[Rfam]
Nucleotides: 078
Base pairs, nucleotide, nucleotide: 009070010069011068013066014065018061019060023056024055025054026053029051030050031049032048033047034046035045036044
Number, partner (000 for none) and nucleotide at each position: 001000c002000c003000c004000u005000a006000g007000c008000c009070c010069c011068g012000a013066u014065a015000a016000u017000a018061g019060u020000g021000a022000a023056a024055a025054u026053c027000c028000u029051u030050g031049u032048g033047g034046u035045c036044u037000g038000g039000g040000g041000u042000u043000c044036g045035g046034a047033c048032c049031a050030c051029a052000a053026g054025a055024u056023u057000g058000u059000a060019g061018c062000g063000g064000a065014u066013a067000g068011c069010g070009g071000g072000a073000u074000u075000a076000a077000g078000c

This 78-nucleotide RNA from Flavobacterium sp. A45 belongs to the Rfam family "Flavo-1 RNA". Rfam 15.1 lists 7,497 matches to the family in 411 species. Rfam classes the family as a small RNA.